[Rfam]
RNA sequence: CUCAUGGGGUCUGCGUCCACCCCGUGAGGCUCAGGCCCAAGGCUCGCAUCCUUUGUUUCCCAUCUCUGGAAGGAUGUCUUAUG
Numbered sequence: 001c002u003c004a005u006g007g008g009g010u011c012u013g014c015g016u017c018c019a020c021c022c023c024g025u026g027a028g029g030c031u032c033a034g035g036c037c038c039a040a041g042g043c044u045c046g047c048a049u050c051c052u053u054u055g056u057u058u059c060c061c062a063u064c065u066c067u068g069g070a071a072g073g074a075u076g077u078c079u080u081a082u083g
Stems, first nucleotide, its partner, number of pairs: 005024006046077006

Overview: The record is an 83-nucleotide sequence from Thalassovita taeanensis, which matches "chrB-a RNA" in Rfam. By type it is a cis-regulatory element. Taxonomically the source falls in Thalassovita (Bacteria, Alphaproteobacteria, Rhodobacterales, Roseobacteraceae). The base pairs follow the family's consensus structure, which is taken from published work.